[Rfam]
RNA sequence: AUACCUUUCUCAGCCUUUUGGAUAAGAUCAAGCGUAGUAUCUGUUCUUAUUAGUUUAAUAUCUGAUAUAUAGACCAUUAUGUCCACUUGAUAUUAAAUUUAUUUAUUUUAGGGAAGGAUCUAUCACAAUGGCUUGCCAUUAGGAACCUUAUGUUGCCUAGGCGUUGCCCUGCAGCCUUGGCUUGGCGCACCCCAA
Numbered sequence: 001a002u003a004c005c006u007u008u009c010u011c012a013g014c015c016u017u018u019u020g021g022a023u024a025a026g027a028u029c030a031a032g033c034g035u036a037g038u039a040u041c042u043g044u045u046c047u048u049a050u051u052a053g054u055u056u057a058a059u060a061u062c063u064g065a066u067a068u069a070u071a072g073a074c075c076a077u078u079a080u081g082u083c084c085a086c087u088u089g090a091u092a093u094u095a096a097a098u099u100u101a102u103u104u105a106u107u108u109u110a111g112g113g114a115a116g117g118a119u120c121u122a123u124c125a126c127a128a129u130g131g132c133u134u135g136c137c138a139u140u141a142g143g144a145a146c147c148u149u150a151u152g153u154u155g156c157c158u159a160g161g162c163g164u165u166g167c168c169c170u171g172c173a174g175c176c177u178u179g180g181c182u183u184g185g186c187g188c189a190c191c192c193c194a195a
Stems, first nucleotide, its partner, number of pairs: 008027003012023001014021002048067006070085001072083003114149004119144003128139004152186004157179001159177004